[Rfam]
RNA sequence: AACUUAACAAAUCUCCGAGUUGUGGUUUUAUAAUGUUGUUAUCUGCGAAACUUCAAACUGGACCAAAGGGUCCACAGGGGGUAUUUGGCAACACUUAUGCCUUCACCAUAUGUUGCAAAGGAGAUAUGAACAGACUUAU
Numbered sequence: 001a002a003c004u005u006a007a008c009a010a011a012u013c014u015c016c017g018a019g020u021u022g023u024g025g026u027u028u029u030a031u032a033a034u035g036u037u038g039u040u041a042u043c044u045g046c047g048a049a050a051c052u053u054c055a056a057a058c059u060g061g062a063c064c065a066a067a068g069g070g071u072c073c074a075c076a077g078g079g080g081g082u083a084u085u086u087g088g089c090a091a092c093a094c095u096u097a098u099g100c101c102u103u104c105a106c107c108a109u110a111u112g113u114u115g116c117a118a119a120g121g122a123g124a125u126a127u128g129a130a131c132a133g134a135c136u137u138a139u
Stems, first nucleotide, its partner, number of pairs: 003133002011125006020056003024052006033044001035042002059074005077102003081098003086093002104115001